[Rfam]
RNA sequence: AAACACACUAUCGAUGAAUGGAUUCACCCGUGAGAUGACGUGGUUGCUCCAUCUAGGAUGUUGACGUAGUAUAUCUUCGUGAGAUGGCUAGUAAUAGGAUACCAUGUCCUCGUCUUAUGUGAAAGAGCCACAUCAUCUCGCGGGUGAAUCCAUUCAUUGAUAGUGUGGUU
Numbered sequence: 001a002a003a004c005a006c007a008c009u010a011u012c013g014a015u016g017a018a019u020g021g022a023u024u025c026a027c028c029c030g031u032g033a034g035a036u037g038a039c040g041u042g043g044u045u046g047c048u049c050c051a052u053c054u055a056g057g058a059u060g061u062u063g064a065c066g067u068a069g070u071a072u073a074u075c076u077u078c079g080u081g082a083g084a085u086g087g088c089u090a091g092u093a094a095u096a097g098g099a100u101a102c103c104a105u106g107u108c109c110u111c112g113u114c115u116u117a118u119g120u121g122a123a124a125g126a127g128c129c130a131c132a133u134c135a136u137c138u139c140g141c142g143g144g145u146g147a148a149u150c151c152a153u154u155c156a157u158u159g160a161u162a163g164u165g166u167g168g169u170u
Stems, first nucleotide, its partner, number of pairs: 001170002004167004009162007017154003021150008030141004035136004041130005048123001051120002054117002057114002063108003069102004075098003084095002
A member of the RNA family "MIR807 microRNA precursor family" from Oryza nivara, 170 nucleotides long. The source organism's lineage runs through Eukaryota, Magnoliopsida, commelinids, Poaceae and Oryza. A reference for the family is Luo et al. (2006), "Rice embryogenic calli express a unique set of microRNAs, suggesting regulatory roles of microRNAs in plant post-embryogenic development", FEBS Lett.